Shown here is a 214-nucleotide RNA sequence from Coptis chinensis, a member of the family "Plant small nucleolar RNA U3". A reference for the family is Zwieb (1997), "The uRNA database", Nucleic Acids Res. Rfam describes the family as follows. Small nucleolar RNAs (snoRNAs) are involved in the processing and modification of rRNA in the nucleolus. Gene Ontology terms of the family: RNA processing and nucleolus. Its Rfam clan is "U3 clan". The base pairs follow the family's consensus structure, which is taken from published work.

[Rfam]
RNA sequence: ACGAACUUACUUGAACAGGAUCUGUUCUUUAGGGAAGUACCUCUCUUUCCUUGUGCAAUCAAGAGACGGUGAACAAAGCUUGGUAGAUGAACCAGGACCGGGCGACCAGAGCGUGAUUAAUGGCUGGUGAUCCAGAUGGGUUCACUUCGCUGUAGAGGAUCGUUCUCAGCAGCCUUCAGGCUUCUGGGGUGAUCGUGCGGUUGUCUGACAAGCC
Dot-bracket structure: ((...((.....((((((...))))))...))....))....((.(.((.(.(.....).).)).).))........(((((..............((((.((((.((.((((......(((((.(.((((((....)))).))..).))))).......)))).((((.((((....)))).))))..)).)))).)))).......))))).